[Rfam]
Shown here is an 88-nucleotide RNA sequence from Sinocyclocheilus rhinocerous, a member of the family "mir-31 microRNA precursor family". Gene Ontology terms of the family: gene silencing by miRNA and RISC complex. NCBI's taxonomy places the organism under Eukaryota, Bilateria, Deuterostomia, Otomorpha, Sinocyclocheilus.

RNA sequence: GACAUGAGAUAUGGCUGUAUAUCGGCACGGCUGUGAUUACCUACGGCCGAAUCACAGCCGUGCCGAUAUACAGCCAUAUCUCACAUCU
Numbered sequence: 001g002a003c004a005u006g007a008g009a010u011a012u013g014g015c016u017g018u019a020u021a022u023c024g025g026c027a028c029g030g031c032u033g034u035g036a037u038u039a040c041c042u043a044c045g046g047c048c049g050a051a052u053c054a055c056a057g058c059c060g061u062g063c064c065g066a067u068a069u070a071c072a073g074c075c076a077u078a079u080c081u082c083a084c085a086u087c088u
Stems, first nucleotide, its partner, number of pairs: 005083017023065016
Dot-bracket structure: ....(((((((((((((((((.((((((((((((((((...........)))))))))))))))).))))))))))))))))).....